[Rfam]
Shown here is a 299-nucleotide RNA sequence from a Candidatus Pelagibacteraceae bacterium, a member of the family "Alphaproteobacteria transfer-messenger RNA".
The match comes from Rfam's covariance-model search (221 bits).
It is annotated as a non-coding RNA gene.
Rfam's curators write: Bacterial tmRNA, also known as 10Sa RNA or SsrA, is named for its dual tRNA and mRNA-like properties.
RNA sequence: UCUAUUGAAUCUUUGAUAACAAGUUUUAUAUUAUUACUGUUGGUUUUCCAACUAUGACGAUAAACGAAUUUCGUAAUAAACAUUGCGGACGUGGGGGCAGUACCCACCACCUCCACCAUUUACAACUUAUGGGGGUGAAUCAGAAUCGACGAGUGUCUAAAGGCUGUUCUUUCGUUCGAGAUAGUUCCGACGUAACGGGCUAAUUAUAAAUGCAAAUGAUAAAUUUGCUCUUGCUGCUUAAUUAACUUGUUAAUUAAAUAAGCACGGUCUGGGGCACCGGGUAACAGAACGCCCCUUAU
Numbered sequence: 001u002c003u004a005u006u007g008a009a010u011c012u013u014u015g016a017u018a019a020c021a022a023g024u025u026u027u028a029u030a031u032u033a034u035u036a037c038u039g040u041u042g043g044u045u046u047u048c049c050a051a052c053u054a055u056g057a058c059g060a061u062a063a064a065c066g067a068a069u070u071u072c073g074u075a076a077u078a079a080a081c082a083u084u085g086c087g088g089a090c091g092u093g094g095g096g097g098c099a100g101u102a103c104c105c106a107c108c109a110c111c112u113c114c115a116c117c118a119u120u121u122a123c124a125a126c127u128u129a130u131g132g133g134g135g136u137g138a139a140u141c142a143g144a145a146u147c148g149a150c151g152a153g154u155g156u157c158u159a160a161a162g163g164c165u166g167u168u169c170u171u172u173c174g175u176u177c178g179a180g181a182u183a184g185u186u187c188c189g190a191c192g193u194a195a196c197g198g199g200c201u202a203a204u205u206a207u208a209a210a211u212g213c214a215a216a217u218g219a220u221a222a223a224u225u226u227g228c229u230c231u232u233g234c235u236g237c238u239u240a241a242u243u244a245a246c247u248u249g250u251u252a253a254u255u256a257a258a259u260a261a262g263c264a265c266g267g268u269c270u271g272g273g274g275c276a277c278c279g280g281g282u283a284a285c286a287g288a289a290c291g292c293c294c295c296u297u298a299u
Stems, first nucleotide, its partner, number of pairs: 039052005056176005066169004072163001081155003086151002091107005108137007177192002182202003186199003265279004271296004275291001